[Rfam]
RNA: mir-877 microRNA precursor family
RNA sequence: GUAGAGGAGCUGGCACAGUGGACACAGGCUGGUGUGGGGCUCUCCGGGCUCUCAGACAUAUGUCCUCUUCUCCCUCUUCCCAG
Numbered sequence: 001g002u003a004g005a006g007g008a009g010c011u012g013g014c015a016c017a018g019u020g021g022a023c024a025c026a027g028g029c030u031g032g033u034g035u036g037g038g039g040c041u042c043u044c045c046g047g048g049c050u051c052u053c054a055g056a057c058a059u060a061u062g063u064c065c066u067c068u069u070c071u072c073c074c075u076c077u078u079c080c081c082a083g
Stems, first nucleotide, its partner, number of pairs: 004079006012073002017068002020065005026059001028057001035054003038050002040047002